[Rfam]
RNA: MIR397 microRNA precursor family
RNA sequence: UUGAGAAACAUCAUUGAGUGCAGCGUUGAUGAAAGUGAUCCCAUUCCUAUUGUCUUGUGUGGGAUAAUUUCGUUAGCGCUGCACUCGAUUAUGUUUCUA
Numbered sequence: 001u002u003g004a005g006a007a008a009c010a011u012c013a014u015u016g017a018g019u020g021c022a023g024c025g026u027u028g029a030u031g032a033a034a035g036u037g038a039u040c041c042c043a044u045u046c047c048u049a050u051u052g053u054c055u056u057g058u059g060u061g062g063g064a065u066a067a068u069u070u071c072g073u074u075a076g077c078g079c080u081g082c083a084c085u086c087g088a089u090u091a092u093g094u095u096u097c098u099a
Base pairs, nucleotide, nucleotide: 006096007095008094009093010092011091013089014088015087016086017085018084019083020082021081022080023079024078025077026076027075028074030072031071032070